[Rfam]
RNA sequence: CAUUUUUUAUGACAACGAUAGAGAGCACGCCUGUAAACAGGCAUGCCCAUUCCAUGAAUGCUAAACAAGCGUGCUCUCUCUCGUCGUCAACCAAUU
Numbered sequence: 001c002a003u004u005u006u007u008u009a010u011g012a013c014a015a016c017g018a019u020a021g022a023g024a025g026c027a028c029g030c031c032u033g034u035a036a037a038c039a040g041g042c043a044u045g046c047c048c049a050u051u052c053c054a055u056g057a058a059u060g061c062u063a064a065a066c067a068a069g070c071g072u073g074c075u076c077u078c079u080c081u082c083g084u085c086g087u088c089a090a091c092c093a094a095u096u
Stems, first nucleotide, its partner, number of pairs: 010089004016083002020079002023076001025074006032067003
This 96-nucleotide RNA from Turnera subulata belongs to the Rfam family "MIR535 microRNA precursor family". Lineage of the source: Eukaryota > Tracheophyta > Euphyllophyta > Mesangiospermae > Turnera. Rfam links the family to the GO terms miRNA-mediated post-transcriptional gene silencing and RISC complex. A reference for the family is Zeng et al. (2010), "Conservation and divergence of microRNAs and their functions in Euphorbiaceous plants", Nucleic Acids Res. The match comes from Rfam's covariance-model search (73 bits).